The family of this 74-nucleotide sequence from Terriglobus saanensis is "tRNA".
The organism belongs to Terriglobus saanensis, within Bacteria.
Rfam links the family to the GO term triplet codon-amino acid adaptor activity.
A reference for the family is Hou (1993), "The tertiary structure of tRNA and the development of the genetic code", Trends Biochem Sci.
A search with the family's covariance model found it, with a score of 66 bits.
[Rfam]
RNA sequence: CGGGGCGUAGCGCAGCCUGGUAGCGCAUCUGCUUUGGGAGCAGAGGGUCGGGAGUUCGAAUCUCUCCGCCCCGA
Dot-bracket structure: (((((((..((((.........)))).(((((.......))))).....(((((.......)))))))))))).